Purine riboswitch aptamer: a 97-nucleotide RNA sequence from Tetragenococcus halophilus.
Nucleotides: 097
Base pairs, nucleotide, nucleotide: 019082020081021080022079023078024077025076029046030045031044032043033042034041055073056072057071058070059069060068
Number, partner (000 for none) and nucleotide at each position: 001000u002000a003000u004000a005000u006000a007000u008000a009000a010000g011000u012000a013000c014000u015000a016000u017000a018000u019082a020081c021080u022079u023078a024077u025076a026000u027000a028000u029046a030045g031044c032043c033042g034041u035000a036000a037000u038000u039000g040000g041034a042033c043032g044031g045030c046029u047000g048000u049000c050000u051000c052000u053000a054000c055073c056072c057071g058070a059069u060068a061000c062000c063000g064000u065000a066000a067000a068060u069059a070058u071057c072056g073055g074000a075000c076025u077024a078023u079022a080021a081020g082019u083000c084000a085000a086000a087000a088000a089000u090000g091000u092000g093000u094000c095000u096000a097000a